[Rfam]
RNA sequence: GUGCUGGCUUUGUCGAGUGGGUACUUCGCAACUUGCAACCUAUUCAAAUUGGAUUGAAUGGUCGCGGGUUCGAGCCCGGUCAGGGUUCGAACUCGUAGCUACCCCACACCCACUGACGCCAUCCAGCACUUUU
Numbered sequence: 001g002u003g004c005u006g007g008c009u010u011u012g013u014c015g016a017g018u019g020g021g022u023a024c025u026u027c028g029c030a031a032c033u034u035g036c037a038a039c040c041u042a043u044u045c046a047a048a049u050u051g052g053a054u055u056g057a058a059u060g061g062u063c064g065c066g067g068g069u070u071c072g073a074g075c076c077c078g079g080u081c082a083g084g085g086u087u088c089g090a091a092c093u094c095g096u097a098g099c100u101a102c103c104c105c106a107c108a109c110c111c112a113c114u115g116a117c118g119c120c121a122u123c124c125a126g127c128a129c130u131u132u133u
Stems, first nucleotide, its partner, number of pairs: 002128006012117004017113004025074004